[Rfam]
Bacteroidales-1 6S-Bacteroidales RNA suggested: a 179-nucleotide RNA sequence from Tannerella forsythia. Taxonomically the source falls in Tannerella forsythia (Bacteria, Bacteroidia, Bacteroidales, Tannerellaceae). The match comes from Rfam's covariance-model search (141 bits). Bacteroidales-1 was first reported in a comparative genomics-based approach of genome and metagenome sequences from Weinberg et al. 2010 In a high-resolution transcriptome map study of Bacteroides thetaiotaomicron, Ryan et al. 2020 report this sRNA as 6S RNA homologue of Bacteroides, in the study they obtain evidence of small product RNAs (pRNAs) related to 6S function. The base pairs follow the family's consensus structure, which is taken from published work. For this family Rfam cites "A high-resolution transcriptome map identifies small RNA regulation of metabolism in the gut microbe Bacteroides thetaiotaomicron" (Ryan et al., Nat Commun, 2020).
RNA sequence: AGCCGCAUUGUUAGAUUGGGAAACUCAUCAGAUAAAAUACAAUUCCGAGACACGCUCUUGGCGCUGAUGGCGGGCUGCAAUUCCUUGUGAAUGCUUCGGCACAGCAGAUUACAAAGGCGUCAAAGGCACUCAAAACCUGUCAUACGGAGUUUGUUCAUAUCGGCAGUGCGGCCUCCCAU
Numbered sequence: 001a002g003c004c005g006c007a008u009u010g011u012u013a014g015a016u017u018g019g020g021a022a023a024c025u026c027a028u029c030a031g032a033u034a035a036a037a038u039a040c041a042a043u044u045c046c047g048a049g050a051c052a053c054g055c056u057c058u059u060g061g062c063g064c065u066g067a068u069g070g071c072g073g074g075c076u077g078c079a080a081u082u083c084c085u086u087g088u089g090a091a092u093g094c095u096u097c098g099g100c101a102c103a104g105c106a107g108a109u110u111a112c113a114a115a116g117g118c119g120u121c122a123a124a125g126g127c128a129c130u131c132a133a134a135a136c137c138u139g140u141c142a143u144a145c146g147g148a149g150u151u152u153g154u155u156c157a158u159a160u161c162g163g164c165a166g167u168g169c170g171g172c173c174u175c176c177c178a179u
Stems, first nucleotide, its partner, number of pairs: 054127002056124001058123008068113002075107004084089001092101003